[Rfam]
RNA sequence: UGGCGCCCGAACAGGGACCUGGACACGGGGGAAAAAGUGAGGAAGAAGGCACUAAAGUCGGCCGAAAGUGAAAGUGGAAAGAAAUUCCUCCGGACGUCGCGGGAGCCUGCCGCGUUGGAACCAGAGGUGAGUAAGUAUAAUAAAUGUGCAAAGGAAAUGGAAGGGAGUGUAUAUGGGUACUCUACUGUCUACUCAGUUCGUUAAACCUCAAAUUACUUUAAAAUAAUAGUCUAUUAAUUUAAAAAAAUCAAUCAUGUUAACUUACACUAUCAUGUUUUCUUUGAUCAUUGAGGUCAUUUCUGGGCGUCUGUCUUU
Numbered sequence: 001u002g003g004c005g006c007c008c009g010a011a012c013a014g015g016g017a018c019c020u021g022g023a024c025a026c027g028g029g030g031g032a033a034a035a036a037g038u039g040a041g042g043a044a045g046a047a048g049g050c051a052c053u054a055a056a057g058u059c060g061g062c063c064g065a066a067a068g069u070g071a072a073a074g075u076g077g078a079a080a081g082a083a084a085u086u087c088c089u090c091c092g093g094a095c096g097u098c099g100c101g102g103g104a105g106c107c108u109g110c111c112g113c114g115u116u117g118g119a120a121c122c123a124g125a126g127g128u129g130a131g132u133a134a135g136u137a138u139a140a141u142a143a144a145u146g147u148g149c150a151a152a153g154g155a156a157a158u159g160g161a162a163g164g165g166a167g168u169g170u171a172u173a174u175g176g177g178u179a180c181u182c183u184a185c186u187g188u189c190u191a192c193u194c195a196g197u198u199c200g201u202u203a204a205a206c207c208u209c210a211a212a213u214u215a216c217u218u219u220a221a222a223a224u225a226a227u228a229g230u231c232u233a234u235u236a237a238u239u240u241a242a243a244a245a246a247a248u249c250a251a252u253c254a255u256g257u258u259a260a261c262u263u264a265c266a267c268u269a270u271c272a273u274g275u276u277u278u279c280u281u282u283g284a285u286c287a288u289u290g291a292g293g294u295c296a297u298u299u300c301u302g303g304g305c306g307u308c309u310g311u312c313u314u315u
Stems, first nucleotide, its partner, number of pairs: 006031003015024001038046001087127004095117001098114005134193004140188003198241001200239001201237003248291005254285002259276003263272001302313004

Rfam assigns this 315-nucleotide RNA sequence from Rhinopithecus roxellana to the family "Mason-Pfizer monkey virus packaging signal". A search with the family's covariance model found it, with a score of 64 bits. The family has 9 seed sequences and 2,921 matches in Rfam 15.1. NCBI's taxonomy places the organism under Eukaryota, Opisthokonta, Dipnotetrapodomorpha, Cercopithecoidea, Rhinopithecus. This family represents a group of sequences that are related to the Mason-Pfizer monkey virus (MPMV) packaging signal. The packaging signal is located in the 5' UTR and is required for specific RNA encapsidation. Rfam links the family to the GO term viral genome packaging.